[Rfam]
RNA sequence: CGUAUGCACUAUGUACGUCGCUCUGGAUAAGAGCGUCUGCCAAAUGACUAUAA
Numbered sequence: 001c002g003u004a005u006g007c008a009c010u011a012u013g014u015a016c017g018u019c020g021c022u023c024u025g026g027a028u029a030a031g032a033g034c035g036u037c038u039g040c041c042a043a044a045u046g047a048c049u050a051u052a053a
Stems, first nucleotide, its partner, number of pairs: 012042001013040003019035006
UnaL2 LINE 3' element: a 53-nucleotide sequence from Synaphobranchus kaupii. The match comes from Rfam's covariance-model search (56 bits). The family has 30 seed sequences and 493,311 matches in Rfam 15.1. Rfam describes the family as follows. The eel long interspersed element (LINE) UnaL2 and its partner short interspersed element (SINE) share a conserved 3' tail containing a stem-loop that is critical for their retrotransposition. Presumably, the first step of retrotransposition is the recognition of their 3' tails by UnaL2-encoded reverse transcriptase. The solution structure of a 17-nucleotide RNA derived from the 3' tail of UnaL2 was determined by NMR. The base pairs follow the family's consensus structure, which is taken from published work. The organism belongs to Synaphobranchus, within Eukaryota. It is annotated as a cis-regulatory element.